[Rfam]
RNA sequence: GGUUCUAUAGCUCAGCGGGAGAGCACUCGCCUCACACGCGAGGGGUCGCUGGUUCGAUCCCAGCUAGAACCA
Numbered sequence: 001g002g003u004u005c006u007a008u009a010g011c012u013c014a015g016c017g018g019g020a021g022a023g024c025a026c027u028c029g030c031c032u033c034a035c036a037c038g039c040g041a042g043g044g045g046u047c048g049c050u051g052g053u054u055c056g057a058u059c060c061c062a063g064c065u066a067g068a069a070c071c072a
Base pairs, nucleotide, nucleotide: 001071002070003069004068005067006066007065010024011023012022013021026042027041028040029039030038048064049063050062051061052060
RNA: tRNA